This 75-nucleotide RNA sequence from Streptomyces viridochromogenes belongs to the Rfam family "ASpks TB sRNA".
It is annotated as an antisense RNA.
A search with the family's covariance model found it, with a score of 74 bits.
The source organism's lineage runs through Bacteria, Actinomycetes, Kitasatosporales, Streptomyces and Streptomyces viridochromogenes.
For this family Rfam cites "Identification of small RNAs in Mycobacterium tuberculosis" (Arnvig and Young, Mol Microbiol, 2009).
[Rfam]
RNA sequence: CUUCAGGGAGCCCAGCCACAGGGGGCGUUCGUCGGUGUGCUCCUGCCCGUAGGUGGUGAGCAGCGCCUGGGCCUC
Number, nucleotide and partner (000 for none) at each position: 001c000002u000003u000004c000005a000006g000007g000008g000009a000010g000011c000012c000013c000014a000015g000016c024017c023018a000019c000020a000021g000022g000023g017024g016025g000026c000027g000028u000029u000030c000031g000032u070033c069034g000035g000036u000037g000038u065039g064040c000041u000042c000043c060044u059045g000046c000047c056048c055049g054050u000051a000052g000053g000054u049055g048056g047057u000058g000059a044060g043061c000062a000063g000064c039065g038066c000067c000068u000069g033070g032071g000072c000073c000074u000075c000